[Rfam]
RNA sequence: UGAGUGUGAAAGGCAAUCGCGGCGCCUGUAAAUUUUCGGAUUUGCAGGCGGUGAGGAAAGUCCGAGCUCCAUAGGGCGGAAUGCCGGAUAACGUCCGGCGAGGGAAACCUUAGGGAUAGUGCCACAGAAAAGUGUACCGCCAGAUUUAUCUGGUAAGGGUGGAACGGUGCGGUAAGAGCGCACCAGCAAGUAAGUAAUUACUUGGCUUGGUAAACCCCAUUCGGAGUAAGACCAAAUAGGGAAGGGAUGAAGCGGCCCGCUGAACCUUCCGGGUUGUGUCGCUGUAUCUUGCGAGUAAUCGCAGGAAUAGAUAAAUGAUUGCCACCGCUUGUCGGAACAGAACUCGGCUUAUUGAACACUCACCUC
Numbered sequence: 001u002g003a004g005u006g007u008g009a010a011a012g013g014c015a016a017u018c019g020c021g022g023c024g025c026c027u028g029u030a031a032a033u034u035u036u037c038g039g040a041u042u043u044g045c046a047g048g049c050g051g052u053g054a055g056g057a058a059a060g061u062c063c064g065a066g067c068u069c070c071a072u073a074g075g076g077c078g079g080a081a082u083g084c085c086g087g088a089u090a091a092c093g094u095c096c097g098g099c100g101a102g103g104g105a106a107a108c109c110u111u112a113g114g115g116a117u118a119g120u121g122c123c124a125c126a127g128a129a130a131a132g133u134g135u136a137c138c139g140c141c142a143g144a145u146u147u148a149u150c151u152g153g154u155a156a157g158g159g160u161g162g163a164a165c166g167g168u169g170c171g172g173u174a175a176g177a178g179c180g181c182a183c184c185a186g187c188a189a190g191u192a193a194g195u196a197a198u199u200a201c202u203u204g205g206c207u208u209g210g211u212a213a214a215c216c217c218c219a220u221u222c223g224g225a226g227u228a229a230g231a232c233c234a235a236a237u238a239g240g241g242a243a244g245g246g247a248u249g250a251a252g253c254g255g256c257c258c259g260c261u262g263a264a265c266c267u268u269c270c271g272g273g274u275u276g277u278g279u280c281g282c283u284g285u286a287u288c289u290u291g292c293g294a295g296u297a298a299u300c301g302c303a304g305g306a307a308u309a310g311a312u313a314a315a316u317g318a319u320u321g322c323c324a325c326c327g328c329u330u331g332u333c334g335g336a337a338c339a340g341a342a343c344u345c346g347g348c349u350u351a352u353u354g355a356a357c358a359c360u361c362a363c364c365u366c
Stems, first nucleotide, its partner, number of pairs: 001362007010353002012323007020053002023050011058350003062347005067226004074258004079222005084098005099113001100111004114217002119215002121211003137158002139154006166184006186206001187204007230280003233276001240270006251261003287306008

The record is a 366-nucleotide RNA sequence from Succiniclasticum ruminis, which matches "Bacterial RNase P class A" in Rfam. It is annotated as a ribozyme.